[Rfam]
rhtB sRNA: an 83-nucleotide RNA. The family's consensus secondary structure is taken from published work. By type it is a small RNA.
Nucleotides: 083
Base pairs, nucleotide, nucleotide: 019065020064021063022062023061024060025059026058027057032052033051034050035049
Number, partner (000 for none) and nucleotide at each position: 001000u002000g003000u004000g005000a006000u007000a008000a009000a010000u011000u012000u013000u014000c015000c016000u017000u018000a019065g020064a021063u022062a023061g024060u025059c026058c027057u028000u029000c030000u031000u032052a033051g034050c035049c036000a037000u038000c039000u040000u041000u042000a043000g044000c045000u046000c047000c048000c049035g050034g051033u052032u053000u054000u055000u056000a057027a058026g059025g060024g061023c062022u063021a064020u065019c066000c067000a068000u069000c070000u071000a072000a073000u074000c075000a076000a077000a078000a079000u080000g081000c082000u083000u